[Rfam]
RNA sequence: UGGCUGUAGCUAUAUUAGCCAAGAAAGGAGGGAAGAAAAUUGGUUGGCUUGCAGUUUUCUUUAUCAUCAACAACCCACUUACCAAGCUUCCCACAUCU
Dot-bracket structure: .............................((((((......(((.((.(((................))..).)).))).......))))))......
Numbered sequence: 001u002g003g004c005u006g007u008a009g010c011u012a013u014a015u016u017a018g019c020c021a022a023g024a025a026a027g028g029a030g031g032g033a034a035g036a037a038a039a040u041u042g043g044u045u046g047g048c049u050u051g052c053a054g055u056u057u058u059c060u061u062u063a064u065c066a067u068c069a070a071c072a073a074c075c076c077a078c079u080u081a082c083c084a085a086g087c088u089u090c091c092c093a094c095a096u097c098u
Stems, first nucleotide, its partner, number of pairs: 030092006042079003046075002049072001050069002
The record is a 98-nucleotide sequence from Phoenix dactylifera, which matches "Small nucleolar RNA snoR109" in Rfam. Lineage of the source: Eukaryota > Tracheophyta > Spermatophyta > Arecales > Phoenix.